[Rfam]
RNA sequence: CGGUGGUGAAAGACAUGGGUAGUGAGACGUUAGAAUUUCAAGGUCGUAUCACUAUUCUGUUUUUCGCCUCGUA
Numbered sequence: 001c002g003g004u005g006g007u008g009a010a011a012g013a014c015a016u017g018g019g020u021a022g023u024g025a026g027a028c029g030u031u032a033g034a035a036u037u038u039c040a041a042g043g044u045c046g047u048a049u050c051a052c053u054a055u056u057c058u059g060u061u062u063u064u065c066g067c068c069u070c071g072u073a
Base pairs, nucleotide, nucleotide: 008065009064010063011062012061013060014059015058017057018056019055021053022052023051024050025049027047028046029045

This 73-nucleotide sequence from Brugia malayi belongs to the Rfam family "mir-71 microRNA precursor family". Taxonomically the source falls in Brugia (Eukaryota, Protostomia, Filarioidea, Onchocercidae). The base pairs follow the family's consensus structure, which was predicted with RNAalifold. The family has 36 seed sequences and 372 matches in Rfam 15.1. Rfam links the family to the GO terms miRNA-mediated post-transcriptional gene silencing and RISC complex. Rfam's curators put it in the seed alignment. The literature on the family includes a 2010 paper in BMC Genomics by Liu et al., "MicroRNAs of Bombyx mori identified by Solexa sequencing".